[Rfam]
RNA sequence: UCCCUGCUUUUCCUCCCUGAGCAGGAGCCUUGUGUGAUGACAGCAUCAAGGCUUUCCGCCCCAGCCUUCGGCUGGGGCUUUUUUUU
Dot-bracket structure: ..((((((...........)))))).((((((..............)))))).....((((((((.....))))))))........

Description: The record is an 86-nucleotide sequence from Inhella proteolytica, which matches "Burkholderia RNA 7 (anti-hemB)" in Rfam. The family's consensus secondary structure is taken from published work. This RNA motif was identified by computational search in b-proteobacteria Burkholderia. Co-purified with Hfq, expression confirmed by Northern blot. The family has 26 seed sequences and 479 matches in Rfam 15.1. On this family, see Weinberg et al., Nucleic Acids Res 2007: "Identification of 22 candidate structured RNAs in bacteria using the CMfinder comparative genomics pipeline".